Shown here is a 78-nucleotide sequence from Callorhinchus milii, a member of the family "mir-103/107 microRNA precursor family". On this family, see Ambros, Cell 2001: "microRNAs: tiny regulators with great potential". The source organism's lineage runs through Eukaryota, Metazoa, Gnathostomata, Chimaeriformes and Callorhinchus. Rfam's curators write: This family consists of the mammalian microRNA (miRNA) precursors mir-103 and mir107. Rfam links the family to the GO terms RISC complex and miRNA-mediated post-transcriptional gene silencing. Rfam 15.1 lists 1,982 matches to the family in 645 species.

RNA sequence: CUGUGUUUUCAGCUUCUUUACAGUGCUGACUUGUAGCAUCCGGAUCAAGCAGCAUUGUACAGGGCUAUGAAAGUACUG
Numbered sequence: 001c002u003g004u005g006u007u008u009u010c011a012g013c014u015u016c017u018u019u020a021c022a023g024u025g026c027u028g029a030c031u032u033g034u035a036g037c038a039u040c041c042g043g044a045u046c047a048a049g050c051a052g053c054a055u056u057g058u059a060c061a062g063g064g065c066u067a068u069g070a071a072a073g074u075a076c077u078g
Stems, first nucleotide, its partner, number of pairs: 014064004019059010030049004